[Rfam]
RNA sequence: UGGCGUCCACACGACUGGCGUAGGUGGGACACCACCAGGGAGUGCCCCUCCGGGGGAAAUAGAGCCGGCAUCGACCGCCUGGGUGCCCUCG
Numbered sequence: 001u002g003g004c005g006u007c008c009a010c011a012c013g014a015c016u017g018g019c020g021u022a023g024g025u026g027g028g029a030c031a032c033c034a035c036c037a038g039g040g041a042g043u044g045c046c047c048c049u050c051c052g053g054g055g056g057a058a059a060u061a062g063a064g065c066c067g068g069c070a071u072c073g074a075c076c077g078c079c080u081g082g083g084u085g086c087c088c089u090c091g
Stems, first nucleotide, its partner, number of pairs: 003048001005046001010044003015039002017079004024035004068086005
Record summary: The record is a 91-nucleotide RNA sequence from Nocardioides sp., which matches "ZMP/ZTP riboswitch aptamer (pfl RNA motif)" in Rfam. It scores 41 bits against the family's covariance model. Pairs were carried over by alignment from the consensus structure, which is taken from published work. Rfam links the family to the GO terms one-carbon metabolic process and regulation of purine nucleotide biosynthetic process.